This 62-nucleotide sequence from Mus spicilegus belongs to the Rfam family "U7 small nuclear RNA". NCBI's taxonomy places the organism under Eukaryota, Teleostomi, Euarchontoglires, Muroidea, Mus. It scores 39 bits against the family's covariance model. The base pairs follow the family's consensus structure, which was predicted with PFOLD.
[Rfam]
RNA sequence: AAUUAACAUAGCUCUUUUAGAACUUUUGUAGCAGGUUUUCUGACUUUGGUCAGAAAACAACA
Numbered sequence: 001a002a003u004u005a006a007c008a009u010a011g012c013u014c015u016u017u018u019a020g021a022a023c024u025u026u027u028g029u030a031g032c033a034g035g036u037u038u039u040c041u042g043a044c045u046u047u048g049g050u051c052a053g054a055a056a057a058c059a060a061c062a
Base pairs, nucleotide, nucleotide: 035058036057037056038055039054040053041052042051043050044049